[Rfam]
RNA: Glycine riboswitch aptamer
RNA sequence: ACUAUCUGAUCGGGAGAACCGGUAAGCCCGGUGCCGAAGGAGCAACCGCCCCGGAAACUCUCAGGCGACAAGGACCGAUCGGAUUUG
Number, nucleotide and partner (000 for none) at each position: 001a000002c000003u000004a000005u000006c082007u081008g080009a079010u078011c077012g076013g075014g000015a000016g000017a000018a000019c031020c030021g029022g028023u000024a000025a000026g000027c000028c022029c021030g020031g019032u000033g066034c065035c064036g062037a061038a000039g000040g060041a059042g058043c000044a000045a000046c054047c053048g000049c000050c000051c000052c000053g047054g046055a000056a000057a000058c042059u041060c040061u037062c036063a000064g035065g034066c033067g000068a000069c000070a000071a000072g000073g000074a000075c013076c012077g011078a010079u009080c008081g007082g006083a000084u000085u000086u000087g000